[Rfam]
This 139-nucleotide sequence from Neogobius melanostomus belongs to the Rfam family "Small nucleolar RNA SNORA57". About the family: U99 belongs to the H/ACA class of snoRNAs which are thought to guide the sites of modification of uridines to pseudouridines, the target for this family is unknown. Gene Ontology terms of the family: RNA processing and nucleolus. Lineage of the source: Eukaryota > Opisthokonta > Euacanthomorphacea > Benthophilinae > Neogobius.
RNA sequence: CCUCCAUUUCUUGGCAUGCAUGUAGUUGUACUGUACUCAUGUGUGUAAUGUACGGAGGAAAAUGAAAUGCAGUGCUAUGUCUUCGGUACUGGUGUGUUUUUAAUGUCUGCCAGUUCUAUCCUCAAUCACUGCGACAUUG
Numbered sequence: 001c002c003u004c005c006a007u008u009u010c011u012u013g014g015c016a017u018g019c020a021u022g023u024a025g026u027u028g029u030a031c032u033g034u035a036c037u038c039a040u041g042u043g044u045g046u047a048a049u050g051u052a053c054g055g056a057g058g059a060a061a062a063u064g065a066a067a068u069g070c071a072g073u074g075c076u077a078u079g080u081c082u083u084c085g086g087u088a089c090u091g092g093u094g095u096g097u098u099u100u101u102a103a104u105g106u107c108u109g110c111c112a113g114u115u116c117u118a119u120c121c122u123c124a125a126u127c128a129c130u131g132c133g134a135c136a137u138u139g
Base pairs, nucleotide, nucleotide: 001058002057003056004055005054015045016044017043018042019041020040022038024037025036026035070131071130072129073128074127089113090112091111092110093109094108